RNA sequence: UUACAUAUUAAUAAUUCCAUUUGUAUAUCGCCAUAUUAUGGUUGGCAGUAUCUACCCAAGACCGUCAUUCUUGGACUACGAAUGCUAAAAAUGAGUGA
Numbered sequence: 001u002u003a004c005a006u007a008u009u010a011a012u013a014a015u016u017c018c019a020u021u022u023g024u025a026u027a028u029c030g031c032c033a034u035a036u037u038a039u040g041g042u043u044g045g046c047a048g049u050a051u052c053u054a055c056c057c058a059a060g061a062c063c064g065u066c067a068u069u070c071u072u073g074g075a076c077u078a079c080g081a082a083u084g085c086u087a088a089a090a091a092u093g094a095g096u097g098a
Stems, first nucleotide, its partner, number of pairs: 018084008030046004056074006
The record is a 98-nucleotide RNA sequence from Limosilactobacillus equigenerosi, which matches "Purine riboswitch aptamer" in Rfam.
About the family: Riboswitches are metabolite binding domains within certain messenger RNAs that serve as precision sensors for their corresponding targets.
Lineage of the source: Bacteria > Bacillati > Bacillota > Lactobacillales > Limosilactobacillus equigenerosi.